The record is an 88-nucleotide RNA from Mus musculus, which matches "mir-599 microRNA precursor family" in Rfam.
NCBI's taxonomy places the organism under Eukaryota, Vertebrata, Theria, Euarchontoglires, Mus.
Rfam links the family to the GO terms RISC complex and miRNA-mediated post-transcriptional gene silencing.
It is one of the family's seed sequences.
[Rfam]
Nucleotides: 088
Base pairs, nucleotide, nucleotide: 005085006084007083008082009081012077013076014075017072018071019070020069021068022067023066024065025064027062028061029060030059031058032057035056036055037054039052040050041049042048
Number, partner (000 for none) and nucleotide at each position: 001000u002000g003000c004000u005085g006084u007083c008082c009081a010000c011000a012077g013076u014075g015000u016000a017072u018071u019070u020069g021068a022067u023066a024065a025064g026000a027062u028061g029060a030059c031058a032057u033000a034000g035056g036055a037054g038000a039052g040050g041049a042048a043000c044000u045000u046000c047000u048042u049041u050040c051000a052039c053000c054037u055036u056035u057032g058031u059030g060029u061028c062027a063000g064025u065024u066023u067022a068021u069020c070019a071018a072017a073000c074000c075014c076013a077012u078000a079000c080000c081009u082008g083007g084006a085005u086000g087000a088000c